[Rfam]
RNA sequence: UGAGUACCGCACGACUGGCGCAGGUGGGCAACCACCGGGGAGUGCGAGCAGAGCAGACAUCGACCGCCUGGGUGUCCCUC
Numbered sequence: 001u002g003a004g005u006a007c008c009g010c011a012c013g014a015c016u017g018g019c020g021c022a023g024g025u026g027g028g029c030a031a032c033c034a035c036c037g038g039g040g041a042g043u044g045c046g047a048g049c050a051g052a053g054c055a056g057a058c059a060u061c062g063a064c065c066g067c068c069u070g071g072g073u074g075u076c077c078c079u080c
Stems, first nucleotide, its partner, number of pairs: 008046005015039002017068004024035004057075005
Rfam assigns this 80-nucleotide RNA sequence from Rhodococcus sp. SMB37 to the family "ZMP/ZTP riboswitch aptamer (pfl RNA motif)".
The organism belongs to Rhodococcus, within Bacteria.